[Rfam]
Rfam assigns this 79-nucleotide RNA sequence from Oryzias javanicus to the family "mir-96 microRNA precursor family". Its family is annotated with miRNA-mediated post-transcriptional gene silencing and RISC complex in the Gene Ontology.

RNA sequence: UUGCCCGUUUUGGCACUAGCACAUUUUUGCUGUUCUCUCUCGCUGUCUGAGCAAUCAUGUGUGGUGCCAAUAUGGGACA
Numbered sequence: 001u002u003g004c005c006c007g008u009u010u011u012g013g014c015a016c017u018a019g020c021a022c023a024u025u026u027u028u029g030c031u032g033u034u035c036u037c038u039c040u041c042g043c044u045g046u047c048u049g050a051g052c053a054a055u056c057a058u059g060u061g062u063g064g065u066g067c068c069a070a071u072a073u074g075g076g077a078c079a
Stems, first nucleotide, its partner, number of pairs: 004076005010070008019062006027054005
A search with the family's covariance model found it, with a score of 81 bits.